[Rfam]
U11 spliceosomal RNA: a 129-nucleotide sequence from Dromaius novaehollandiae.
By type it is a spliceosomal small nuclear RNA.
It scores 105 bits against the family's covariance model.
RNA sequence: AAAAAGGGCUUCUGCCGUGCGUGGCACGGGGGGGUCCCACGGCCGCUCCCGCGGAAUCGACAUCAAGAGAUUUCGGAAGCACAAUUUUUGCGGCAGGGGCAGCCGGUAACCGCCUGUUCUGGCGCCCCG
Numbered sequence: 001a002a003a004a005a006g007g008g009c010u011u012c013u014g015c016c017g018u019g020c021g022u023g024g025c026a027c028g029g030g031g032g033g034g035u036c037c038c039a040c041g042g043c044c045g046c047u048c049c050c051g052c053g054g055a056a057u058c059g060a061c062a063u064c065a066a067g068a069g070a071u072u073u074c075g076g077a078a079g080c081a082c083a084a085u086u087u088u089u090g091c092g093g094c095a096g097g098g099g100c101a102g103c104c105g106g107u108a109a110c111c112g113c114c115u116g117u118u119c120u121g122g123c124g125c126c127c128c129g
Base pairs, nucleotide, nucleotide: 008080009079010078011077012076013026014025015024016023017022027051028050029049030048031047032046034044036042037041052075053074054073055072056071057070058069097127098126099125100124102123103122104121105120106119108118109117110116